[Rfam]
Shown here is a 64-nucleotide RNA sequence from Salvelinus namaycush, a member of the family "mir-737 microRNA precursor family". Gene Ontology terms of the family: miRNA-mediated post-transcriptional gene silencing and RISC complex. The family has 5 seed sequences and 233 matches in Rfam 15.1. NCBI's taxonomy places the organism under Eukaryota, Gnathostomata, Actinopterygii, Osteoglossocephalai, Salvelinus. It scores 65 bits against the family's covariance model.
RNA sequence: UUGUUUUUUUACGUUUAGAUUUUUGUGACUUUUAAAGCAAGAAAAUCUGAACCUAAAGAAAAUA
Numbered sequence: 001u002u003g004u005u006u007u008u009u010u011a012c013g014u015u016u017a018g019a020u021u022u023u024u025g026u027g028a029c030u031u032u033u034a035a036a037g038c039a040a041g042a043a044a045a046u047c048u049g050a051a052c053c054u055a056a057a058g059a060a061a062a063u064a
Stems, first nucleotide, its partner, number of pairs: 004061008013052012